Shown here is a 75-nucleotide RNA sequence from Camelus ferus, a member of the family "mir-492 microRNA precursor family". Taxonomically the source falls in Camelus (Eukaryota, Tetrapoda, Artiodactyla, Camelidae). For this family Rfam cites "Identification of novel homologous microRNA genes in the rhesus macaque genome" (Yue et al., BMC Genomics, 2008). A search with the family's covariance model found it, with a score of 85 bits. Pairs were carried over by alignment from the consensus structure, which was predicted with RNAalifold.
RNA sequence: ACCAUCGAGGACCUGCAGGACAAGAUUCCUGGUGCCACCGUUGAGAACUCCAAGGUAGUCCUGCAGAUCGACAAU
Number, nucleotide and partner (000 for none) at each position: 001a000002c000003c000004a000005u000006c000007g000008a000009g000010g069011a068012c000013c066014u065015g064016c063017a062018g061019g060020a059021c058022a000023a056024g000025a000026u000027u055028c054029c000030u052031g051032g050033u000034g048035c000036c000037a000038c000039c000040g000041u000042u000043g000044a000045g000046a000047a000048c034049u000050c032051c031052a030053a000054g028055g027056u023057a000058g021059u020060c019061c018062u017063g016064c015065a014066g013067a000068u011069c010070g000071a000072c000073a000074a000075u000